[Rfam]
RNA sequence: ACUGCUGAGCCAUCUCUCCAGCCCCAACAAUCUCUUUUUUUAAAAAUUUUAUUUAGGGCUAGAGAGAUGGCUCAGCAGU
Numbered sequence: 001a002c003u004g005c006u007g008a009g010c011c012a013u014c015u016c017u018c019c020a021g022c023c024c025c026a027a028c029a030a031u032c033u034c035u036u037u038u039u040u041u042a043a044a045a046a047u048u049u050u051a052u053u054u055a056g057g058g059c060u061a062g063a064g065a066g067a068u069g070g071c072u073c074a075g076c077a078g079u
Base pairs, nucleotide, nucleotide: 002078003077004076005075006074007073008072009071010070011069012068013067014066015065016064017063018062020060021059022058023057024056

mir-3473 microRNA precursor family: a 79-nucleotide sequence from Jaculus jaculus. The match comes from Rfam's covariance-model search (77 bits). The source organism's lineage runs through Eukaryota, Teleostomi, Glires, Rodentia and Jaculus. The family's consensus secondary structure was predicted with RNAalifold.